[Rfam]
RNA sequence: GCUCUGGUCGGAAACCAGAGCCGAUGUAAGGAG
Numbered sequence: 001g002c003u004c005u006g007g008u009c010g011g012a013a014a015c016c017a018g019a020g021c022c023g024a025u026g027u028a029a030g031g032a033g
Stems, first nucleotide, its partner, number of pairs: 001021008
A member of the RNA family "L31-Coriobacteria ribosomal protein leader", 33 nucleotides long. A reference for the family is Eckert and Weinberg (2020), "Discovery of 20 novel ribosomal leader candidates in bacteria and archaea", BMC Microbiol. The family's RNA type in Rfam is cis-regulatory leader. The family is grouped with related families in Rfam's "Ribosomal Protein L31 Leader clan". The family has 75 seed sequences and 105 matches in Rfam 15.1.